[Rfam]
RNA sequence: UGGUGCCUGAACAUGGGGCUUGAGGUAUGAAAUAUGACCUGAACGUCACUCGAGUGGACGUCCAUCACCCCCAUUGGAUUGCCACCUCAUCAGUGAGUGAAGAUCCGCAUGCAGAUUACUGCAGGAGUGCCCUCCUGUGAUACAGAUCUGGAGAGGUAAGAAAAGUGACGCAAUUAUGGGACAAGCAUUAAGUAAGCACGAAUUGUUUGUUGACGGACUUAAAACUUCUCUUAAGACACGAGGAACACGGGUUAAGAAAAAAGAUUUAGUGAAAUUCUUUGUCUUUUUAGAAGAUGUCUGUCCCU
Numbered sequence: 001u002g003g004u005g006c007c008u009g010a011a012c013a014u015g016g017g018g019c020u021u022g023a024g025g026u027a028u029g030a031a032a033u034a035u036g037a038c039c040u041g042a043a044c045g046u047c048a049c050u051c052g053a054g055u056g057g058a059c060g061u062c063c064a065u066c067a068c069c070c071c072c073a074u075u076g077g078a079u080u081g082c083c084a085c086c087u088c089a090u091c092a093g094u095g096a097g098u099g100a101a102g103a104u105c106c107g108c109a110u111g112c113a114g115a116u117u118a119c120u121g122c123a124g125g126a127g128u129g130c131c132c133u134c135c136u137g138u139g140a141u142a143c144a145g146a147u148c149u150g151g152a153g154a155g156g157u158a159a160g161a162a163a164a165g166u167g168a169c170g171c172a173a174u175u176a177u178g179g180g181a182c183a184a185g186c187a188u189u190a191a192g193u194a195a196g197c198a199c200g201a202a203u204u205g206u207u208u209g210u211u212g213a214c215g216g217a218c219u220u221a222a223a224a225c226u227u228c229u230c231u232u233a234a235g236a237c238a239c240g241a242g243g244a245a246c247a248c249g250g251g252u253u254a255a256g257a258a259a260a261a262a263g264a265u266u267u268a269g270u271g272a273a274a275u276u277c278u279u280u281g282u283c284u285u286u287u288u289a290g291a292a293g294a295u296g297u298c299u300g301u302c303c304c305u
Base pairs, nucleotide, nucleotide: 006036008034013028014027015026105156106155110152115147116145117144120139121138122137123136124135165182166181169180171178172177190231192228194226239281240280241279242278243277244276245275249267250266251265252264253263290305293302294301295300
A member of the RNA family "Mason-Pfizer monkey virus packaging signal" from Jaculus jaculus, 305 nucleotides long. The organism belongs to Jaculus, within Eukaryota. Rfam links the family to the GO term viral genome packaging. A search with the family's covariance model found it, with a score of 70 bits.